Shown here is a 142-nucleotide RNA sequence from Micromonospora echinaurantiaca, a member of the family "c-di-AMP riboswitch aptamer (ydaO/yuaA leader)". The organism belongs to Micromonospora, within Bacteria.

RNA sequence: CGCGCCGACCCGCCUAAUCGUGAUCAUACGAACCGGGGAACCAAUGCUCCUUUGGGGUGAAUCUGCGGGCUGCGGCCCGUGGUAGGGCGUACUUCCCGCCCGAAUCCGUCAGCUAACCCGGUCGGCGGCGUCGGAAGGAGUU
Dot-bracket structure: ..........((((...(((........)))((((((....((.........))(((.....((((((........))))))..((((.........))))...))).........)))))).))))...............

Overview
Rfam describes the family as follows. This family represents a conserved RNA structure found upstream of the ydaO and yuaA genes in Bacillus subtilis and related genes in other bacteria.